Notes
Rfam assigns this 371-nucleotide RNA from Pseudomonas fluorescens to the family "Pseudomonas sRNA P34". The base pairs follow the family's consensus structure, which was predicted with CMfinder. The literature on the family includes a 2006 paper in Nucleic Acids Res by Livny et al., "Identification of 17 Pseudomonas aeruginosa sRNAs and prediction of sRNA-encoding genes in 10 diverse pathogens using the bioinformatic tool sRNAPredict2". The source organism's lineage runs through Bacteria, Pseudomonadota, Gammaproteobacteria, Pseudomonadaceae and Pseudomonas fluorescens.
RNA sequence: CCGCCCAAUGCGCCGCCUACACCGGCUUCGGUGGUGCCACCGGCCAUGGCUGCGCCACUGACCAGGCCAAGGGACAACAAGAGAAUCGAGGAAAGCUUCAUUCAGGUAAACCUCAAGGGGAUGACGGCGCGAUCCUGAGGCCGUAUUGACAUGCUGACAAUAGAAAUCCGACCAGUAACACGAGUUGUACACAAUUCUCUAAGUUACUGUUUUAACUGCGGAACUUAAGUGAUUUUUGCGAGUCAUUAGCUCUUCGGAACGGCCGCUUUUAUGCAAAAGCGGCCUUUUUUUGUGUCCAAAAUGAUCGAUCAGGCCGAGCGCGACAUGAUCAAACCGCUCUCGCUCGCGGCUUCCAGGCGAAUCGCCACGAA
Numbered sequence: 001c002c003g004c005c006c007a008a009u010g011c012g013c014c015g016c017c018u019a020c021a022c023c024g025g026c027u028u029c030g031g032u033g034g035u036g037c038c039a040c041c042g043g044c045c046a047u048g049g050c051u052g053c054g055c056c057a058c059u060g061a062c063c064a065g066g067c068c069a070a071g072g073g074a075c076a077a078c079a080a081g082a083g084a085a086u087c088g089a090g091g092a093a094a095g096c097u098u099c100a101u102u103c104a105g106g107u108a109a110a111c112c113u114c115a116a117g118g119g120g121a122u123g124a125c126g127g128c129g130c131g132a133u134c135c136u137g138a139g140g141c142c143g144u145a146u147u148g149a150c151a152u153g154c155u156g157a158c159a160a161u162a163g164a165a166a167u168c169c170g171a172c173c174a175g176u177a178a179c180a181c182g183a184g185u186u187g188u189a190c191a192c193a194a195u196u197c198u199c200u201a202a203g204u205u206a207c208u209g210u211u212u213u214a215a216c217u218g219c220g221g222a223a224c225u226u227a228a229g230u231g232a233u234u235u236u237u238g239c240g241a242g243u244c245a246u247u248a249g250c251u252c253u254u255c256g257g258a259a260c261g262g263c264c265g266c267u268u269u270u271a272u273g274c275a276a277a278a279g280c281g282g283c284c285u286u287u288u289u290u291u292g293u294g295u296c297c298a299a300a301a302u303g304a305u306c307g308a309u310c311a312g313g314c315c316g317a318g319c320g321c322g323a324c325a326u327g328a329u330c331a332a333a334c335c336g337c338u339c340u341c342g343c344u345c346g347c348g349g350c351u352u353c354c355a356g357g358c359g360a361a362u363c364g365c366c367a368c369g370a371a
Base pairs, nucleotide, nucleotide: 004073005072006071010055012053013052015050016049017048028043029042030041031040032039033038081339082338083337086332088330089329096120097119098118099117101116102115104113105112106111121246122245123244124243125242127239128238129237133231135229136228140158159208161206162205163204170176220225251298255292256291261283263282264281265280266279267278268277269276303319305317344370345369346368348366349365350364351361352360353359